[Rfam]
RNA sequence: UUGGUUGCGAUGAUUAGAAAUGAAAUUAUUGGUUCUGAAUGCUAUAGCCAUGGCAUGACAGACUCCUUUACACCCAUAGAAUAUGAGCACC
Numbered sequence: 001u002u003g004g005u006u007g008c009g010a011u012g013a014u015u016a017g018a019a020a021u022g023a024a025a026u027u028a029u030u031g032g033u034u035c036u037g038a039a040u041g042c043u044a045u046a047g048c049c050a051u052g053g054c055a056u057g058a059c060a061g062a063c064u065c066c067u068u069u070a071c072a073c074c075c076a077u078a079g080a081a082u083a084u085g086a087g088c089a090c091c
Stems, first nucleotide, its partner, number of pairs: 003091002006089002
Record summary
This 91-nucleotide RNA sequence from Manihot esculenta belongs to the Rfam family "Small nucleolar RNA snoR8a". It is annotated as a C/D-box small nucleolar RNA. For this family Rfam cites "Multiple snoRNA gene clusters from Arabidopsis" (Brown et al., RNA, 2001). Taxonomically the source falls in Manihot (Eukaryota, Viridiplantae, Streptophyta, Manihoteae). The family's consensus secondary structure was predicted with WAR.